[Rfam]
A member of the RNA family "Bacterial RNase P class B" from Malacoplasma iowae, 349 nucleotides long.
Ribonuclease P (RNase P) is a ubiquitous endoribonuclease, found in archaea, bacteria and eukarya as well as chloroplasts and mitochondria.
Rfam links the family to the GO terms ribonuclease P activity, dimeric ribonuclease P complex and tRNA processing.
The match comes from Rfam's covariance-model search (258 bits).
The family is grouped with related families in Rfam's "RNaseP clan".
The organism belongs to Malacoplasma iowae, within Bacteria.
RNA sequence: AAUAAUAGUUGAUCGCUGCAUAUCACUAUAUGUAGAGGAAAGUCCAUGCUAGCAUUAUCUGAGAUGAUAAUAAUGUUUGUGCAAGUAUAUAAAAAAUAAAACCUGGUACAUACUUUAAGUAUGUAACGACAUUUUAUAAACCUAAGUCUUUUGAUAAGGUUUGUGAAUCUAAAGUGCCACAGAGACGAGUUGUAAUGAAAGUUACAAUGUGAAACGCGGUAAACUCCUCAAGCUAGAAACCUAAAUUUUGGUAAGGGAACUUUUUAAUAAGAAAUGAAUUAUUAAAAGGAUGUUGAAAAACAUAGAUAAAUGAUCAACGCUCCUAUGAGUACAGAACAUGGCUUAUUUU
Number, nucleotide and partner (000 for none) at each position: 001a000002a000003u000004a000005a349006u000007a346008g318009u317010u316011g315012a314013u313014c312015g000016c035017u034018g033019c032020a031021u030022a000023u000024c000025a000026c000027u000028a000029u000030a021031u020032g019033u018034a017035g016036a000037g000038g000039a000040a344041a343042g342043u000044c341045c340046a339047u338048g337049c236050u235051a234052g233053c232054a071055u070056u069057a068058u067059c066060u000061g000062a000063g000064a000065u000066g059067a058068u057069a056070a055071u054072a000073a000074u000075g000076u000077u231078u230079g229080u000081g227082c105083a104084a000085g102086u101087a000088u000089a000090u000091a000092a000093a000094a000095a000096a000097u000098a000099a000100a000101a086102c085103c000104u083105g082106g127107u125108a124109c123110a122111u121112a120113c119114u118115u000116u000117a000118a114119g113120u112121a111122u110123g109124u108125a107126a000127c106128g226129a225130c000131a168132u167133u166134u165135u000136a000137u000138a000139a161140a160141c159142c158143u000144a000145a000146g155147u154148c153149u000150u000151u000152u000153g148154a147155u146156a000157a000158g142159g141160u140161u139162u000163g000164u000165g134166a133167a132168u131169c000170u000171a000172a000173a000174g224175u223176g220177c219178c218179a000180c000181a000182g000183a000184g000185a000186c000187g000188a000189g208190u207191u206192g205193u204194a203195a202196u201197g000198a000199a000200a000201g196202u195203u194204a193205c192206a191207a190208u189209g000210u000211g000212a000213a000214a000215c000216g000217c000218g178219g177220u176221a000222a000223a175224c174225u129226c128227c081228u000229c079230a078231a077232g053233c052234u051235a050236g049237a000238a000239a000240c256241c255242u254243a000244a000245a000246u000247u000248u000249u000250g000251g000252u000253a000254a242255g241256g240257g000258a000259a000260c289261u288262u287263u286264u285265u284266a283267a000268u000269a000270a000271g000272a000273a000274a000275u000276g000277a000278a000279u000280u000281a000282u000283u266284a265285a264286a263287a262288g261289g260290a303291u302292g301293u300294u299295g000296a000297a000298a000299a294300a293301c292302a291303u290304a000305g000306a000307u000308a000309a000310a000311u000312g014313a013314u012315c011316a010317a009318c008319g000320c329321u328322c327323c000324u000325a000326u000327g322328a321329g320330u000331a000332c000333a000334g000335a000336a000337c048338a047339u046340g045341g044342c042343u041344u040345a000346u007347u000348u000349u005